[Rfam]
Purine riboswitch aptamer: a 98-nucleotide RNA from Anaerorhabdus furcosa.

RNA sequence: GAUUAAACAAUCACAUUUGCUUGUAUAGGUGUCAAGAAUUGGCUGACAUGUUUCUACCCACUGGCCUAUAGUGGACUACAAGUAAACCUUUUCCCCGU
Numbered sequence: 001g002a003u004u005a006a007a008c009a010a011u012c013a014c015a016u017u018u019g020c021u022u023g024u025a026u027a028g029g030u031g032u033c034a035a036g037a038a039u040u041g042g043c044u045g046a047c048a049u050g051u052u053u054c055u056a057c058c059c060a061c062u063g064g065c066c067u068a069u070a071g072u073g074g075a076c077u078a079c080a081a082g083u084a085a086a087c088c089u090u091u092u093c094c095c096c097g098u
Stems, first nucleotide, its partner, number of pairs: 018084008029049006058074006
Lineage of the source: Bacteria > Bacillati > Bacillota > Erysipelotrichia > Anaerorhabdus.